[Rfam]
RNA sequence: GGAUACUUGACGGAGCCUGCUCCUAGUACGAGAGGACCGGAGUGGACGUACCGCUGGUGUAUCGGUUGUCAUGCCAAUGGCAUUGCCGAGUAGCUAUGUACGGAAGAGAUAACCGCUGAAGGCAUCUAAGCGGGAAACUCGUCUGAAGAUUAGGUAUCCCGGGGGCUAGACCCCCCUGAAGGGUCGUUCGAGACCAGGACGUUGAUAGGUCGGGUGUGUACGCGCAGUAAUGCGCUCAGCUAACCGAUACUAAUUGCCCGUGCG
Number, nucleotide and partner (000 for none) at each position: 001g159002g158003a157004u156005a155006c154007u153008u152009g000010a000011c145012g144013g143014a142015g000016c000017c045018u044019g043020c042021u041022c040023c039024u000025a000026g000027u000028a000029c000030g000031a000032g000033a000034g000035g000036a000037c000038c000039g023040g022041a021042g020043u019044g018045g017046a000047c102048g101049u100050a099051c098052c000053g000054c000055u096056g095057g094058u000059g000060u000061a000062u089063c088064g087065g086066u085067u082068g081069u080070c079071a078072u077073g000074c000075c000076a000077a072078u071079g070080g069081c068082a067083u000084u000085g066086c065087c064088g063089a062090g000091u000092a000093g000094c057095u056096a055097u000098g051099u050100a049101c048102g047103g000104a000105a000106g140107a139108g138109a000110u000111a000112a000113c133114c132115g131116c130117u129118g000119a000120a000121g000122g000123c000124a000125u000126c000127u000128a000129a117130g116131c115132g114133g113134g000135a000136a000137a000138c108139u107140c106141g000142u014143c013144u012145g011146a000147a000148g000149a000150u000151u000152a008153g007154g006155u005156a004157u003158c002159c001160c000161g000162g176163g175164g174165g000166c000167u000168a000169g000170a000171c000172c000173c000174c164175c163176c162177u000178g261179a000180a000181g259182g258183g257184u256185c201186g200187u199188u198189c197190g000191a000192g000193a000194c000195c000196a000197g189198g188199a187200c186201g185202u000203u000204g000205a000206u252207a251208g250209g248210u247211c246212g245213g244214g000215u000216g240217u000218g000219u000220a000221c000222g235223c234224g233225c232226a231227g000228u000229a000230a000231u226232g225233c224234g223235c222236u000237c000238a000239g000240c216241u000242a000243a000244c213245c212246g211247a210248u209249a000250c208251u207252a206253a000254u000255u000256g184257c183258c182259c181260g000261u178262g000263c000264g000
Notes:
The family of this 264-nucleotide part of an RNA from Paralcaligenes ureilyticus is "Bacterial large subunit ribosomal RNA". It scores 2806 bits against the family's covariance model. NCBI's taxonomy places the organism under Bacteria, Pseudomonadota, Betaproteobacteria, Burkholderiales, Paralcaligenes. Gene Ontology terms of the family: structural constituent of ribosome and ribosome.